[Rfam]
RNA sequence: CAUCCAUCGAGACCGGCUGAGGGACAGGCCCGAAGACGCCGGGGCAACCCCGCUCUCCACGACGCGAGUCGAGGGGAGGGAAGGUGCCAAGUCCUGCGGGGACCUGAGCGUCCGCCGGCAGAUGGUUG
Numbered sequence: 001c002a003u004c005c006a007u008c009g010a011g012a013c014c015g016g017c018u019g020a021g022g023g024a025c026a027g028g029c030c031c032g033a034a035g036a037c038g039c040c041g042g043g044g045c046a047a048c049c050c051c052g053c054u055c056u057c058c059a060c061g062a063c064g065c066g067a068g069u070c071g072a073g074g075g076g077a078g079g080g081a082a083g084g085u086g087c088c089a090a091g092u093c094c095u096g097c098g099g100g101g102a103c104c105u106g107a108g109c110g111u112c113c114g115c116c117g118g119c120a121g122a123u124g125g126u127u128g
Base pairs, nucleotide, nucleotide: 001128002127004125005124006123007122008121013042014041015040016039017038021031022030023029025096026095027094028093043088044087045086046085048084049083050080051079092120097117098116099115101113